[Rfam]
This 245-nucleotide RNA from Alkaliphilus peptidifermentans belongs to the Rfam family "T-box leader". NCBI's taxonomy places the organism under Bacteria, Bacillati, Natronincolaceae, Alkaliphilus, Alkaliphilus peptidifermentans. Uncharged tRNA acts as the effector for transcription antitermination of genes in the T-box leader family.
RNA sequence: UUGAAAGCGAAGAUUGAGAGGAGUAGUCAUGAAUUGAAACCUACAGAGAGUCGCUGGUUGGUGAGAAUGCGGCAGGGAUGUUUAUGAUGAAUGGGCUCAUGAGUGCGAUCCGAAUCACUAUAGUAGGCGUCGCCGGGAAUCCUACCCGUUAUCAUUAGGACAUGUAUGAUGGUACAUGAUUUAAGUGGGUAUAGGAAUAUACCAAUUUGGGUGGCACCGCAGGAGAUAGGUCUCUUGUCCCUUUU
Numbered sequence: 001u002u003g004a005a006a007g008c009g010a011a012g013a014u015u016g017a018g019a020g021g022a023g024u025a026g027u028c029a030u031g032a033a034u035u036g037a038a039a040c041c042u043a044c045a046g047a048g049a050g051u052c053g054c055u056g057g058u059u060g061g062u063g064a065g066a067a068u069g070c071g072g073c074a075g076g077g078a079u080g081u082u083u084a085u086g087a088u089g090a091a092u093g094g095g096c097u098c099a100u101g102a103g104u105g106c107g108a109u110c111c112g113a114a115u116c117a118c119u120a121u122a123g124u125a126g127g128c129g130u131c132g133c134c135g136g137g138a139a140u141c142c143u144a145c146c147c148g149u150u151a152u153c154a155u156u157a158g159g160a161c162a163u164g165u166a167u168g169a170u171g172g173u174a175c176a177u178g179a180u181u182u183a184a185g186u187g188g189g190u191a192u193a194g195g196a197a198u199a200u201a202c203c204a205a206u207u208u209g210g211g212u213g214g215c216a217c218c219g220c221a222g223g224a225g226a227u228a229g230g231u232c233u234c235u236u237g238u239c240c241c242u243u244u245u
Base pairs, nucleotide, nucleotide: 007104008103015099016098017097018096026088027087028086029085030084031083040076041075050073051072052071053070054069106132107131108130109129110127111126134148135147136146188203189202190201191200192199193198209241210240211239219238220237221236222235223234224233225232